[Rfam]
RNA sequence: GGGCGGUUAGCUCAGUUGGUAGAGCGCGUGCCUAGCAUGCACGAGGCCGGGGGUUCAACUCCCUCAUCGUCCA
Number, nucleotide and partner (000 for none) at each position: 001g072002g071003g070004c069005g068006g067007u066008u000009a000010g025011c024012u023013c022014a000015g000016u000017u000018g000019g000020u000021a000022g013023a012024g011025c010026g000027c043028g042029u041030g040031c039032c000033u000034a000035g000036c000037a000038u000039g031040c030041a029042c028043g027044a000045g000046g000047c000048c000049g065050g064051g063052g062053g061054u000055u000056c000057a000058a000059c000060u000061c053062c052063c051064u050065c049066a007067u006068c005069g004070u003071c002072c001073a000
tRNA: a 73-nucleotide RNA sequence from Giardia muris. Lineage of the source: Eukaryota > Diplomonadida > Hexamitidae > Giardiinae > Giardia. Rfam 15.1 lists 5,335,975 matches to the family in 14,413 species. The family's consensus secondary structure is taken from published work. Rfam classes the family as a transfer RNA. For this family Rfam cites "The tertiary structure of tRNA and the development of the genetic code" (Hou, Trends Biochem Sci, 1993). The match comes from Rfam's covariance-model search (64 bits).